[Rfam]
RNA sequence: ACCAUCCUUCUCUUGGGGUGAGCGGUUGUCCGAGGAGCGUGUAGCGAGGACAGCAGUGCUAACACCACUUACAACACUCACGCAUCACUAUUGCCAAGGCAUUAGUCAAGGUGCAAUUUUUGGACCC
Numbered sequence: 001a002c003c004a005u006c007c008u009u010c011u012c013u014u015g016g017g018g019u020g021a022g023c024g025g026u027u028g029u030c031c032g033a034g035g036a037g038c039g040u041g042u043a044g045c046g047a048g049g050a051c052a053g054c055a056g057u058g059c060u061a062a063c064a065c066c067a068c069u070u071a072c073a074a075c076a077c078u079c080a081c082g083c084a085u086c087a088c089u090a091u092u093g094c095c096a097a098g099g100c101a102u103u104a105g106u107c108a109a110g111g112u113g114c115a116a117u118u119u120u121u122g123g124a125c126c127c
Stems, first nucleotide, its partner, number of pairs: 006018004020059001022057002025054007037045002082114005089105001092101003

A member of the RNA family "U4atac minor spliceosomal RNA" from Leptobrachium leishanense, 127 nucleotides long. Rfam links the family to the GO terms U4atac snRNP, mRNA 5'-splice site recognition and spliceosomal tri-snRNP complex assembly. It is annotated as a spliceosomal small nuclear RNA. A reference for the family is Lorkovic et al. (2005), "Evolutionary conservation of minor U12-type spliceosome between plants and humans", RNA. Clan: U4 clan. U4atac is an essential component of the minor U12-type spliceosome complex which is required for removal of the rarer class of eukaryotic introns (AT-AC, U12-type). Pairs were carried over by alignment from the consensus structure, which is taken from published work.